[Rfam]
RNA sequence: UAGUUAUCAAGAAAGGUGGAGGGAUUGGACCCUUUGAAGCCUUAGCAACCCUUGUUCUCCCGAUGAUUAUCGGAAUCAAGAAGGUGCUACAUUCUACCCUUAGGGGAAGGAUAACAG
Numbered sequence: 001u002a003g004u005u006a007u008c009a010a011g012a013a014a015g016g017u018g019g020a021g022g023g024a025u026u027g028g029a030c031c032c033u034u035u036g037a038a039g040c041c042u043u044a045g046c047a048a049c050c051c052u053u054g055u056u057c058u059c060c061c062g063a064u065g066a067u068u069a070u071c072g073g074a075a076u077c078a079a080g081a082a083g084g085u086g087c088u089a090c091a092u093u094c095u096a097c098c099c100u101u102a103g104g105g106g107a108a109g110g111a112u113a114a115c116a117g
Stems, first nucleotide, its partner, number of pairs: 001117001003115006013043005021032003026096004044088004049084002051080004092109001097106003
Shown here is a 117-nucleotide sequence from Maribacter cobaltidurans, a member of the family "SAM riboswitch aptamer (S box leader)". Taxonomically the source falls in Maribacter (Bacteria, Bacteroidota, Flavobacteriales, Flavobacteriaceae).